[Rfam]
RNA sequence: CUCCCCGAAAUGUGUUGAGGCGCAGCGGUUGUGAUUAUAGUCUGGGGGUAAAGCACUGUUUCGGUGCGGGCGGCGAAAGCUGUACCAAAUCGAGACAAACUCAGAAUACCAGAUGUACACACAACCAGUGAGACGGUGGGGGAUAAGCUUCAUCGUCAAGAGGGAAACAGCCCAGACCACCAGCUAAGGUCCCCAAAUCAUCGCUAAGUGGCAAAGGAGGUGGGAGUGCACAGACAACCAGGAGGUUUGCCUAGAAGCAGCCACCCUUAAAAGAGUGCGUAAUAGCUCACUGGUCAAGCGCUCCUGCGCCGAAAAUGAACGGGACUAAGCGAUGUACCGAAGCUGUGGAUUUUAGUAAAAAGUUAUCAGUUAUCAGUUAUGAAUGAACCAAAAGUUUGUAAUAACUGUUAACUGGUAACUGAGAACUGAACUGGUAGGGGAGCGUUCCGUAUUAGGAAGAAGCACUAGCGGCGAGCAGGUGUGGACGAAACGGAAGUGAGAAU
Numbered sequence: 001c002u003c004c005c006c007g008a009a010a011u012g013u014g015u016u017g018a019g020g021c022g023c024a025g026c027g028g029u030u031g032u033g034a035u036u037a038u039a040g041u042c043u044g045g046g047g048g049u050a051a052a053g054c055a056c057u058g059u060u061u062c063g064g065u066g067c068g069g070g071c072g073g074c075g076a077a078a079g080c081u082g083u084a085c086c087a088a089a090u091c092g093a094g095a096c097a098a099a100c101u102c103a104g105a106a107u108a109c110c111a112g113a114u115g116u117a118c119a120c121a122c123a124a125c126c127a128g129u130g131a132g133a134c135g136g137u138g139g140g141g142g143a144u145a146a147g148c149u150u151c152a153u154c155g156u157c158a159a160g161a162g163g164g165a166a167a168c169a170g171c172c173c174a175g176a177c178c179a180c181c182a183g184c185u186a187a188g189g190u191c192c193c194c195a196a197a198u199c200a201u202c203g204c205u206a207a208g209u210g211g212c213a214a215a216g217g218a219g220g221u222g223g224g225a226g227u228g229c230a231c232a233g234a235c236a237a238c239c240a241g242g243a244g245g246u247u248u249g250c251c252u253a254g255a256a257g258c259a260g261c262c263a264c265c266c267u268u269a270a271a272a273g274a275g276u277g278c279g280u281a282a283u284a285g286c287u288c289a290c291u292g293g294u295c296a297a298g299c300g301c302u303c304c305u306g307c308g309c310c311g312a313a314a315a316u317g318a319a320c321g322g323g324a325c326u327a328a329g330c331g332a333u334g335u336a337c338c339g340a341a342g343c344u345g346u347g348g349a350u351u352u353u354a355g356u357a358a359a360a361a362g363u364u365a366u367c368a369g370u371u372a373u374c375a376g377u378u379a380u381g382a383a384u385g386a387a388c389c390a391a392a393a394g395u396u397u398g399u400a401a402u403a404a405c406u407g408u409u410a411a412c413u414g415g416u417a418a419c420u421g422a423g424a425a426c427u428g429a430a431c432u433g434g435u436a437g438g439g440g441a442g443c444g445u446u447c448c449g450u451a452u453u454a455g456g457a458a459g460a461a462g463c464a465c466u467a468g469c470g471g472c473g474a475g476c477a478g479g480u481g482u483g484g485a486c487g488a489a490a491c492g493g494a495a496g497u498g499a500g501a502a503u
Stems, first nucleotide, its partner, number of pairs: 001442006011024005026128001027126007036119001037116003041113005052101002057097003061093004068086002070083005132157010162173003177348004182344003188338003197335001199334006216310002220307010237294005243267003249261002268272001273288001277286002349432001351430006443498001445495006453488001455486001462482005468476002
Bacterial large subunit ribosomal RNA: a 503-nucleotide part of an RNA from Brasilonema sennae. A search with the family's covariance model found it, with a score of 2705 bits.